[Rfam]
RNA sequence: AUUGCCUUAGAAUUACCAGAAGGUGGACUAAAUCAUUACACCGUUUGGUUCAGACAGAGGCAUAUAUUAAUUAAUCCGAAUCAGUUUGAGGGUAAGGAAACUUUAUCUCCUUGUUCCUUUCUCUGUGUUCUUUCUUAGAUUGAUUUGGACAUUC
Numbered sequence: 001a002u003u004g005c006c007u008u009a010g011a012a013u014u015a016c017c018a019g020a021a022g023g024u025g026g027a028c029u030a031a032a033u034c035a036u037u038a039c040a041c042c043g044u045u046u047g048g049u050u051c052a053g054a055c056a057g058a059g060g061c062a063u064a065u066a067u068u069a070a071u072u073a074a075u076c077c078g079a080a081u082c083a084g085u086u087u088g089a090g091g092g093u094a095a096g097g098a099a100a101c102u103u104u105a106u107c108u109c110c111u112u113g114u115u116c117c118u119u120u121c122u123c124u125g126u127g128u129u130c131u132u133u134c135u136u137a138g139a140u141u142g143a144u145u146u147g148g149a150c151a152u153u154c
Stems, first nucleotide, its partner, number of pairs: 003062006015049006023041003077147006088119003092116001095111004100106001127141001129139003
Record summary
Small nucleolar RNA snoR138: a 154-nucleotide sequence from Tripterygium wilfordii. NCBI's taxonomy places the organism under Eukaryota, Viridiplantae, rosids, Celastraceae, Tripterygium. For this family Rfam cites "Mining small RNA sequencing data: a new approach to identify small nucleolar RNAs in Arabidopsis" (Chen and Wu, Nucleic Acids Res, 2009). The family has 7 seed sequences and 308 matches in Rfam 15.1.